[Rfam]
RNA: glmS glucosamine-6-phosphate activated ribozyme aptamer
RNA sequence: UCCAUUCCAAAAGCGCCCGGACUGUUUUGGACGGUACAAAAAACAGUUGACGAGGUGGAGGUGUAUCGAAGAUCGGCGGAUACCUCCCGGUUGAACAUGUCACAACCGCAAGCCUGAGCUCAAAACGAGGAGGCGACUCUUCGCACAAAGCAAUGGCAUUGACGAAA
Numbered sequence: 001u002c003c004a005u006u007c008c009a010a011a012a013g014c015g016c017c018c019g020g021a022c023u024g025u026u027u028u029g030g031a032c033g034g035u036a037c038a039a040a041a042a043a044c045a046g047u048u049g050a051c052g053a054g055g056u057g058g059a060g061g062u063g064u065a066u067c068g069a070a071g072a073u074c075g076g077c078g079g080a081u082a083c084c085u086c087c088c089g090g091u092u093g094a095a096c097a098u099g100u101c102a103c104a105a106c107c108g109c110a111a112g113c114c115u116g117a118g119c120u121c122a123a124a125a126c127g128a129g130g131a132g133g134c135g136a137c138u139c140u141u142c143g144c145a146c147a148a149a150g151c152a153a154u155g156g157c158a159u160u161g162a163c164g165a166a167a
Stems, first nucleotide, its partner, number of pairs: 020048008057087005066076004088108006112157003118151001126143007